[Rfam]
RNA sequence: UCUAUCAGCUAUUGGCUUUAAACUUGCAGAACUAAAACUGCAUAAGUGAUAGGAUACCCUAUAGAAAGAGAAAGGCUGUUUUUUUCUAAGGUUUUUUAAAUCUCCCUUAUAAUUAAUUUUUGAGAGAAAUUUUGAGAGUUAAUUUAAGGAAAAAGAUUAAAAAACUUUUGCAAGGUAUAAAAAGUUAAAAAAUUUAGACAUUAAAGAUUAAAGAACAGCCCUUUAAUCUUUUUU
Numbered sequence: 001u002c003u004a005u006c007a008g009c010u011a012u013u014g015g016c017u018u019u020a021a022a023c024u025u026g027c028a029g030a031a032c033u034a035a036a037a038c039u040g041c042a043u044a045a046g047u048g049a050u051a052g053g054a055u056a057c058c059c060u061a062u063a064g065a066a067a068g069a070g071a072a073a074g075g076c077u078g079u080u081u082u083u084u085u086c087u088a089a090g091g092u093u094u095u096u097u098a099a100a101u102c103u104c105c106c107u108u109a110u111a112a113u114u115a116a117u118u119u120u121u122g123a124g125a126g127a128a129a130u131u132u133u134g135a136g137a138g139u140u141a142a143u144u145u146a147a148g149g150a151a152a153a154a155g156a157u158u159a160a161a162a163a164a165c166u167u168u169u170g171c172a173a174g175g176u177a178u179a180a181a182a183a184g185u186u187a188a189a190a191a192a193u194u195u196a197g198a199c200a201u202u203a204a205a206g207a208u209u210a211a212a213g214a215a216c217a218g219c220c221c222u223u224u225a226a227u228c229u230u231u232u233u234u
Stems, first nucleotide, its partner, number of pairs: 001053007025042005032197005054178005067087007074220006088168012203231011
Dot-bracket structure: (((((((.................(((((..{{{{{.)))))....)))))))(((((........((((((([[[[[[.)))))))((((((((((((.........................................................)))))))))))).....)))))..............}}}}}.....(((((((((((.]]]]]])))))))))))...